[Rfam]
Nucleotides: 081
Base pairs, nucleotide, nucleotide: 001080002079003078004077005076006075007074010025011024012023027043028042029041030040031039057073058072059071060070061069
Number, partner (000 for none) and nucleotide at each position: 001080g002079c003078g004077a005076g006075a007074g008000u009000g010025a011024c012023g013000g014000a015000a016000u017000g018000g019000u020000a021000g022000a023012c024011g025010u026000a027043g028042u029041c030040g031039g032000c033000u034000c035000a036000a037000a038000a039031u040030c041029g042028a043027c044000c045000g046000c047000c048000g049000c050000a051000a052000g053000g054000c055000a056000u057073a058072g059071g060070g061069g062000u063000u064000c065000g066000a067000g068000u069061c070060c071059c072058c073057u074007c075006u076005c077004u078003c079002g080001u081000a
Record summary
This 81-nucleotide sequence from Nguyenibacter vanlangensis belongs to the Rfam family "tRNA". The family's consensus secondary structure is taken from published work. Lineage of the source: Bacteria > Pseudomonadati > Alphaproteobacteria > Acetobacteraceae > Nguyenibacter. A search with the family's covariance model found it, with a score of 50 bits.